Rfam assigns this 79-nucleotide RNA sequence from Betta splendens to the family "mir-92 microRNA precursor family". The literature on the family includes a 2002 paper in Genes Dev by Mourelatos et al., "miRNPs: a novel class of ribonucleoproteins containing numerous microRNAs". Rfam links the family to the GO terms miRNA-mediated post-transcriptional gene silencing and RISC complex. The family is grouped with related families in Rfam's "mir-92 microRNA precursor clan".
[Rfam]
RNA sequence: UUUUCUGUGCAGGUUGGGAGAAGUAGCAGUGCCCUGUAUACUUUGUGGUAUUGCACUUGUCCCGGCCUGUUGAGGAUAU
Numbered sequence: 001u002u003u004u005c006u007g008u009g010c011a012g013g014u015u016g017g018g019a020g021a022a023g024u025a026g027c028a029g030u031g032c033c034c035u036g037u038a039u040a041c042u043u044u045g046u047g048g049u050a051u052u053g054c055a056c057u058u059g060u061c062c063c064g065g066c067c068u069g070u071u072g073a074g075g076a077u078a079u
Stems, first nucleotide, its partner, number of pairs: 004075003009070006016063004022057003026054008